The family of this 97-nucleotide sequence from Bifidobacterium callitrichos is "Bacterial small signal recognition particle RNA".
It is annotated as a non-coding RNA gene.
The signal recognition particle (SRP) is a universally conserved ribonucleoprotein involved in the co-translational targeting of proteins to membranes.
Lineage of the source: Bacteria > Actinomycetota > Bifidobacteriales > Bifidobacteriaceae > Bifidobacterium.
It scores 65 bits against the family's covariance model.

[Rfam]
RNA sequence: ACAAAGCCUCCACGCGGCGUUACGUCGCCCAAUCCCCCCAGGGCAGGAAUGCAGCAAGGGUAAGCGGCCUCUGACGGGUGCGUGGAGGUUUUUCUAU
Dot-bracket structure: ...((((((((((((..(((((.(((((......(((.....(((....))).....)))...)))))...))))).)..)))))))))))......